[Rfam]
Small nucleolar RNA U2-19: an 87-nucleotide RNA sequence from Jaculus jaculus. It is annotated as a C/D-box small nucleolar RNA. Lineage of the source: Eukaryota > Tetrapoda > Dipodidae > Dipodinae > Jaculus.
RNA sequence: AGUAAAACAAGAAACUUCCAGCCAAAUCUGAGCAUCAGAAAGAAGGCUUGUCAGUCUUCUUGAUGCAUGGUCUCUAUUGUUCUGAGA
Numbered sequence: 001a002g003u004a005a006a007a008c009a010a011g012a013a014a015c016u017u018c019c020a021g022c023c024a025a026a027u028c029u030g031a032g033c034a035u036c037a038g039a040a041a042g043a044a045g046g047c048u049u050g051u052c053a054g055u056c057u058u059c060u061u062g063a064u065g066c067a068u069g070g071u072c073u074c075u076a077u078u079g080u081u082c083u084g085a086g087a
Base pairs, nucleotide, nucleotide: 032066033065034064035063036062044057045056046055047054